[Rfam]
RNA sequence: UGGUCGGCGCAGGAUUUAUGCUGUUUGUCCUGUUCAUCGCUGCCCGAAGGAGAACGGCGUCAGGGUAGUGAGCGAUCG
Numbered sequence: 001u002g003g004u005c006g007g008c009g010c011a012g013g014a015u016u017u018a019u020g021c022u023g024u025u026u027g028u029c030c031u032g033u034u035c036a037u038c039g040c041u042g043c044c045c046g047a048a049g050g051a052g053a054a055c056g057g058c059g060u061c062a063g064g065g066u067a068g069u070g071a072g073c074g075a076u077c078g
Stems, first nucleotide, its partner, number of pairs: 001078006009033004038070008
This 78-nucleotide sequence from Fischerella sp. PCC 9339 belongs to the Rfam family "CyVA-1 RNA".
The organism belongs to Fischerella, within Bacteria.
By type it is a small RNA.
From the family's description: Cyanobacteria, Acidobacteria (1 example), Verrucomicrobia (1 example).